[Rfam]
Rfam assigns this 74-nucleotide sequence from Microlunatus endophyticus to the family "tRNA".
The base pairs follow the family's consensus structure, which is taken from published work.
For this family Rfam cites "The tertiary structure of tRNA and the development of the genetic code" (Hou, Trends Biochem Sci, 1993).
It is annotated as a transfer RNA.
The match comes from Rfam's covariance-model search (61 bits).
RNA sequence: GGCCAGGUAGCUCAGCUGGUAGCAGCGUUCGCCUGAAAAGUGAAAGGUCGGCGGUUCGAGCCCGCCCCUGGCCA
Numbered sequence: 001g002g003c004c005a006g007g008u009a010g011c012u013c014a015g016c017u018g019g020u021a022g023c024a025g026c027g028u029u030c031g032c033c034u035g036a037a038a039a040g041u042g043a044a045a046g047g048u049c050g051g052c053g054g055u056u057c058g059a060g061c062c063c064g065c066c067c068c069u070g071g072c073c074a
Stems, first nucleotide, its partner, number of pairs: 001073007010026003028044005050066005

Taxonomically the source falls in Microlunatus (Bacteria, Actinomycetota, Actinomycetes, Propionibacteriales).